RNA: FMN riboswitch aptamer (RFN element)
RNA sequence: CACGUGCUCCGGGGUCGGUGAGAGUCCGAACCGGCGGUGAUAGUCCGCGAGCCGAGCACCCUCGGGUGCCCGGUUGACCUGGUGGAACUCCAGGACCGACGGUGAAAGUCCGGAUGGGAGGAAGCACGCG
Numbered sequence: 001c002a003c004g005u006g007c008u009c010c011g012g013g014g015u016c017g018g019u020g021a022g023a024g025u026c027c028g029a030a031c032c033g034g035c036g037g038u039g040a041u042a043g044u045c046c047g048c049g050a051g052c053c054g055a056g057c058a059c060c061c062u063c064g065g066g067u068g069c070c071c072g073g074u075u076g077a078c079c080u081g082g083u084g085g086a087a088c089u090c091c092a093g094g095a096c097c098g099a100c101g102g103u104g105a106a107a108g109u110c111c112g113g114a115u116g117g118g119a120g121g122a123a124g125c126a127c128g129c130g
Base pairs, nucleotide, nucleotide: 003128004127005126006125007124008123009121010120016028017027018026030109031108032098033097034048035047036046037045043096044095051074052073053072078094079093080092081091082090100112101111102110